[Rfam]
RNA: Guanidine-I riboswitch aptamer
RNA sequence: GUGGGGCGCGCCUAGGGUUCCGCCGGCAGGCAGCCGGGUCUGGUCCGAGAGGCGCAGGCGGCCGGCACCGGAGCCCGGCCGUUCCACGGCGGGACAAAAGCCCGGGAGAC
Number, nucleotide and partner (000 for none) at each position: 001g000002u000003g000004g000005g000006g000007c000008g055009c054010g053011c052012c051013u000014a000015g046016g045017g000018u000019u000020c043021c042022g040023c037024c036025g035026g034027c033028a000029g000030g000031c000032a000033g027034c026035c025036g024037g023038g000039u000040c022041u000042g021043g020044u000045c016046c015047g000048a000049g000050a000051g012052g011053c010054g009055c008056a000057g083058g082059c081060g080061g079062c078063c077064g076065g000066c000067a000068c000069c000070g000071g000072a000073g000074c000075c000076c064077g063078g062079c061080c060081g059082u058083u057084c000085c105086a000087c108088g000089g000090c000091g103092g102093g101094a000095c000096a000097a000098a000099a000100g000101c093102c092103c091104g000105g085106g000107a000108g087109a000110c000